[Rfam]
The record is a 185-nucleotide sequence from Cyanobacteria bacterium FACHB-DQ100, which matches "6S / SsrS RNA" in Rfam. A search with the family's covariance model found it, with a score of 94 bits. On this family, see Wassarman and Storz, Cell 2000: "6S RNA regulates E. coli RNA polymerase activity". Taxonomically the source falls in Cyanobacteriota (Bacteria, Bacillati).
RNA sequence: GAUUUGCUGCGGCGUUGGUGACUGCCAACAAUGUUUUAUGAUCUAUGUUUUUUGAAUCUGGGAGUCAAAAAAGGCUGAUGGCAGUAGACCGAGCUUGUACUCGGAAACUUCAAAUCCGCUACUUCGACACCCACCUGGUUUUAACCAGGUCAAAAGCUGAGGUAAGACGGCGCUGCGGUGUCCUA
Numbered sequence: 001g002a003u004u005u006g007c008u009g010c011g012g013c014g015u016u017g018g019u020g021a022c023u024g025c026c027a028a029c030a031a032u033g034u035u036u037u038a039u040g041a042u043c044u045a046u047g048u049u050u051u052u053u054g055a056a057u058c059u060g061g062g063a064g065u066c067a068a069a070a071a072a073g074g075c076u077g078a079u080g081g082c083a084g085u086a087g088a089c090c091g092a093g094c095u096u097g098u099a100c101u102c103g104g105a106a107a108c109u110u111c112a113a114a115u116c117c118g119c120u121a122c123u124u125c126g127a128c129a130c131c132c133a134c135c136u137g138g139u140u141u142u143a144a145c146c147a148g149g150u151c152a153a154a155a156g157c158u159g160a161g162g163u164a165a166g167a168c169g170g171c172g173c174u175g176c177g178g179u180g181u182c183c184u185a
Base pairs, nucleotide, nucleotide: 005180006179007178008177009176010175011174012173013172014171015170018168019167035156036155037154039152040151041150042149043148044147060132061131062130064128065127066126068124069123073120074119075118077116078115079114084108085107089104090103091102092101093100